[Rfam]
RNA sequence: UGAGUCAGCCGGAUAAUCGCUGCCUGUGACGAAAAUGAUCAGGGGGAGGAAAGUCCGGGCUCCACAGGGCAGGGUGCCAGCUAACGGCUGGGGGGCGUGAGCCUACGACAAGUGCAGCAGAGAGGAGACCGCCAACUUUCGAGUUGGUAAGGGUGAAAGGGUGCGGUAAGAGCGCACCGGGCCACUGGUAACAGUUGGUUGCAAGGUAAACUCCACCCGGAGCAAGACCAAAUAGGGUUCCUUAUGGUGUGGCCCACAUCGGAACCGGGUAGGUUGCUUGAGCCUAGGAGCAAUCCUAGGCCUAGACGAAUGAUUAUCACUCGUAAGAGUACAGAACCCGGCUUAUAGGCUGUCUCAGAAG
Numbered sequence: 001u002g003a004g005u006c007a008g009c010c011g012g013a014u015a016a017u018c019g020c021u022g023c024c025u026g027u028g029a030c031g032a033a034a035a036u037g038a039u040c041a042g043g044g045g046g047a048g049g050a051a052a053g054u055c056c057g058g059g060c061u062c063c064a065c066a067g068g069g070c071a072g073g074g075u076g077c078c079a080g081c082u083a084a085c086g087g088c089u090g091g092g093g094g095g096c097g098u099g100a101g102c103c104u105a106c107g108a109c110a111a112g113u114g115c116a117g118c119a120g121a122g123a124g125g126a127g128a129c130c131g132c133c134a135a136c137u138u139u140c141g142a143g144u145u146g147g148u149a150a151g152g153g154u155g156a157a158a159g160g161g162u163g164c165g166g167u168a169a170g171a172g173c174g175c176a177c178c179g180g181g182c183c184a185c186u187g188g189u190a191a192c193a194g195u196u197g198g199u200u201g202c203a204a205g206g207u208a209a210a211c212u213c214c215a216c217c218c219g220g221a222g223c224a225a226g227a228c229c230a231a232a233u234a235g236g237g238u239u240c241c242u243u244a245u246g247g248u249g250u251g252g253c254c255c256a257c258a259u260c261g262g263a264a265c266c267g268g269g270u271a272g273g274u275u276g277c278u279u280g281a282g283c284c285u286a287g288g289a290g291c292a293a294u295c296c297u298a299g300g301c302c303u304a305g306a307c308g309a310a311u312g313a314u315u316a317u318c319a320c321u322c323g324u325a326a327g328a329g330u331a332c333a334g335a336a337c338c339c340g341g342c343u344u345a346u347a348g349g350c351u352g353u354c355u356c357a358g359a360a361g
Stems, first nucleotide, its partner, number of pairs: 001357004006352005011346001012318007020046002023043004051344003055341005060222004067255004072218005077091005092106001093104004107213002112211002114207002129152002131148007160178006179202001180200005185194003226275004236266006246260005282301008
RNA: Bacterial RNase P class A